[Rfam]
RNA: Bacterial RNase P class A
RNA sequence: AAAGCAAGCCGUCUUAUCGCUGCCUGUGCAAACAGGGAGAGGAAAGUCCGGGCAGCAUAGAGCACCGUGCUACCUAACGGGUAGGCGGUCGUCUGGUGACGGGCGGCCGACAGCCAGUACCACAGAAAAUAUACCGCCCGGAGGAGCCUGCUCCGCCGGGUAAGGGUGAAAAGGUAGGGUAAGAGCCUACCGCCUGUCAGGCGACUGACAGGGCAGGGCAAACCUCACGGGCUGAAAGACCAAAUAAACCGGCGGUUUCCGCAAGGAACGAAGGGCUGCUCGCCCGGUGCCGGUGGGUAGGUCGUUAGAGACGGCAGGUGACUGCCGUUCUGGAUAAAUGAUAAGACCGCGACUUUCCUUCGGGAGUCAUCGCGGACAGAACCCGGCUUACAGGCUUGCUUUUUCU
Numbered sequence: 001a002a003a004g005c006a007a008g009c010c011g012u013c014u015u016a017u018c019g020c021u022g023c024c025u026g027u028g029c030a031a032a033c034a035g036g037g038a039g040a041g042g043a044a045a046g047u048c049c050g051g052g053c054a055g056c057a058u059a060g061a062g063c064a065c066c067g068u069g070c071u072a073c074c075u076a077a078c079g080g081g082u083a084g085g086c087g088g089u090c091g092u093c094u095g096g097u098g099a100c101g102g103g104c105g106g107c108c109g110a111c112a113g114c115c116a117g118u119a120c121c122a123c124a125g126a127a128a129a130u131a132u133a134c135c136g137c138c139c140g141g142a143g144g145a146g147c148c149u150g151c152u153c154c155g156c157c158g159g160g161u162a163a164g165g166g167u168g169a170a171a172a173g174g175u176a177g178g179g180u181a182a183g184a185g186c187c188u189a190c191c192g193c194c195u196g197u198c199a200g201g202c203g204a205c206u207g208a209c210a211g212g213g214c215a216g217g218g219c220a221a222a223c224c225u226c227a228c229g230g231g232c233u234g235a236a237a238g239a240c241c242a243a244a245u246a247a248a249c250c251g252g253c254g255g256u257u258u259c260c261g262c263a264a265g266g267a268a269c270g271a272a273g274g275g276c277u278g279c280u281c282g283c284c285c286g287g288u289g290c291c292g293g294u295g296g297g298u299a300g301g302u303c304g305u306u307a308g309a310g311a312c313g314g315c316a317g318g319u320g321a322c323u324g325c326c327g328u329u330c331u332g333g334a335u336a337a338a339u340g341a342u343a344a345g346a347c348c349g350c351g352a353c354u355u356u357c358c359u360u361c362g363g364g365a366g367u368c369a370u371c372g373c374g375g376a377c378a379g380a381a382c383c384c385g386g387c388u389u390a391c392a393g394g395c396u397u398g399c400u401u402u403u404u405c406u
Stems, first nucleotide, its partner, number of pairs: 001402010011391001012346007020039002023036005044389003048386005053234004060281004065230005070084005085111001086109010112225002117223002120218002134165002136161006143154004173191006192214001193212008238303004248294006273285004310329008